[Rfam]
RNA sequence: UAUUUAUAAAGAAUAGGGAAGAGAGCAGACUCGUUGAACCUAUUGCAACCUAGCCUCUUGAUGGGAAAAGGUGCUAAAUUCUGCCUAAAUGAUUAGGGAAUAUAAAUA
Numbered sequence: 001u002a003u004u005u006a007u008a009a010a011g012a013a014u015a016g017g018g019a020a021g022a023g024a025g026c027a028g029a030c031u032c033g034u035u036g037a038a039c040c041u042a043u044u045g046c047a048a049c050c051u052a053g054c055c056u057c058u059u060g061a062u063g064g065g066a067a068a069a070g071g072u073g074c075u076a077a078a079u080u081c082u083g084c085c086u087a088a089a090u091g092a093u094u095a096g097g098g099a100a101u102a103u104a105a106a107u108a
Stems, first nucleotide, its partner, number of pairs: 001108008013043005021032003026083004045074003049071002051067001054065002079100001084097005